[Rfam]
RNA sequence: GGCCGGGUAAGGCGUCCACGCCGCAUCCGGCACAGGCACCGCACUGAUGUCUGAUGCGACGCUGGCGCGUCUUAUCAGACC
Dot-bracket structure: .(((((((..((((....))))..))))))).................((((((((.(((((....))))).)))))))).
About this RNA:
Nucleoid-associated noncoding RNA 4 (CssrE): an 81-nucleotide sequence from Shigella dysenteriae. It is annotated as a small RNA. Its family is annotated with bacterial nucleoid DNA packaging, bacterial nucleoid and protein binding in the Gene Ontology. The source organism's lineage runs through Bacteria, Pseudomonadati, Enterobacteriaceae, Shigella and Shigella dysenteriae. The family's consensus secondary structure is taken from published work. The family has 3 seed sequences and 870 matches in Rfam 15.1.